[Rfam]
RNA sequence: GAUGCGUCCAUGAAGAGCACUAACAAAAGAGUGUCUCACUCCGUUAGUGUUCAGAUGUUUCUUCAUU
Numbered sequence: 001g002a003u004g005c006g007u008c009c010a011u012g013a014a015g016a017g018c019a020c021u022a023a024c025a026a027a028a029g030a031g032u033g034u035c036u037c038a039c040u041c042c043g044u045u046a047g048u049g050u051u052c053a054g055a056u057g058u059u060u061c062u063u064c065a066u067u
Stems, first nucleotide, its partner, number of pairs: 001067004015052010030040003
Selenocysteine insertion sequence 1: a 67-nucleotide sequence from Pogona vitticeps.
It scores 37 bits against the family's covariance model.
Gene Ontology term of the family: selenocysteine incorporation.
Pairs were carried over by alignment from the consensus structure, which is taken from published work.
Rfam describes the family as follows. The incorporation of selenocysteine into a protein sequence is directed by an in-frame UGA codon (usually a stop codon) within the coding region of the mRNA. Selenoprotein mRNAs contain a conserved secondary structure in the 3' UTR that is required for the distinction of UGA stop from UGA selenocysteine.
The literature on the family includes a 1996 paper in RNA by Walczak et al., "A novel RNA structural motif in the selenocysteine insertion element of eukaryotic selenoprotein mRNAs".